The record is a 131-nucleotide RNA sequence from Fusibacter sp. 3D3, which matches "Ribosomal protein L10 leader" in Rfam. This family is a putative r-protein leader autoregulatory structure found in B. subtilis and other low-GC Gram-positive bacteria. It is located in the 5' untranslated regions of mRNAs encoding ribosomal proteins L10 and L12 (rplJ-rplL). Its family is annotated with regulation of gene expression in the Gene Ontology. A search with the family's covariance model found it, with a score of 86 bits. Pairs were carried over by alignment from the consensus structure, which was predicted with CMfinder.
RNA sequence: UGUAAAAAUGAAUGUAAACCGUAGACAGUAGGUGCUUAUGCUUAAUUUCCUACCGAGGUAAGGAUAAAUAGUUUAUUUCGAUAAAUUAUAGCCUCUCUUGUCUACGGAAGAGAGGCUUUUUAUUUAAUAUU
Numbered sequence: 001u002g003u004a005a006a007a008a009u010g011a012a013u014g015u016a017a018a019c020c021g022u023a024g025a026c027a028g029u030a031g032g033u034g035c036u037u038a039u040g041c042u043u044a045a046u047u048u049c050c051u052a053c054c055g056a057g058g059u060a061a062g063g064a065u066a067a068a069u070a071g072u073u074u075a076u077u078u079c080g081a082u083a084a085a086u087u088a089u090a091g092c093c094u095c096u097c098u099u100g101u102c103u104a105c106g107g108a109a110g111a112g113a114g115g116c117u118u119u120u121u122a123u124u125u126a127a128u129a130u131u
Base pairs, nucleotide, nucleotide: 028053029052030051031050032049034041035040091116092115093114094113095112096111097110098109099108